Description: Shown here is a 154-nucleotide sequence, a member of the family "RT-14 RNA".
RNA sequence: CAAGAGAUUACGGUCAGAUAGUACAAGUUUAAGGACUUAACUACAGAACAAAAUAUCUUGAGAGUUUUAAUCCUUGUCGCAAGAUCUAUCUUCGGCAAAAAACAUAAAUAGGCAAAGUCUAAUUAGUAACAAAAUGUGAGGAUUAGAUUUUGCC
Numbered sequence: 001c002a003a004g005a006g007a008u009u010a011c012g013g014u015c016a017g018a019u020a021g022u023a024c025a026a027g028u029u030u031a032a033g034g035a036c037u038u039a040a041c042u043a044c045a046g047a048a049c050a051a052a053a054u055a056u057c058u059u060g061a062g063a064g065u066u067u068u069a070a071u072c073c074u075u076g077u078c079g080c081a082a083g084a085u086c087u088a089u090c091u092u093c094g095g096c097a098a099a100a101a102a103c104a105u106a107a108a109u110a111g112g113c114a115a116a117g118u119c120u121a122a123u124u125a126g127u128a129a130c131a132a133a134a135u136g137u138g139a140g141g142a143u144u145a146g147a148u149u150u151u152g153c154c
Stems, first nucleotide, its partner, number of pairs: 009052001013049002021041002025038005076096004111154013129137002